Overview
The family of this 145-nucleotide sequence from Chania multitudinisentens is "Molybdenum/Tungsten riboswitch aptamer (Moco RNA motif)".
RNA sequence: GUGAAACCCAAACUCCUAGCCUUUGCGCCUACGUUGUUCAGUUGGAACGAUAGGGUGCCUGGGCCGUGGCGAAGUCAGCCACCAGGGUGCAGAGUGGAAACGCUCGCAUCUCCCGUAUUUGGAAAGGUGUUAUGGUACCGCAACU
Numbered sequence: 001g002u003g004a005a006a007c008c009c010a011a012a013c014u015c016c017u018a019g020c021c022u023u024u025g026c027g028c029c030u031a032c033g034u035u036g037u038u039c040a041g042u043u044g045g046a047a048c049g050a051u052a053g054g055g056u057g058c059c060u061g062g063g064c065c066g067u068g069g070c071g072a073a074g075u076c077a078g079c080c081a082c083c084a085g086g087g088u089g090c091a092g093a094g095u096g097g098a099a100a101c102g103c104u105c106g107c108a109u110c111u112c113c114c115g116u117a118u119u120u121g122g123a124a125a126g127g128u129g130u131u132a133u134g135g136u137a138c139c140g141c142a143a144c145u
Stems, first nucleotide, its partner, number of pairs: 003139001006136001011131003015127002019064004025058005033051007066082005085111006092105005112122002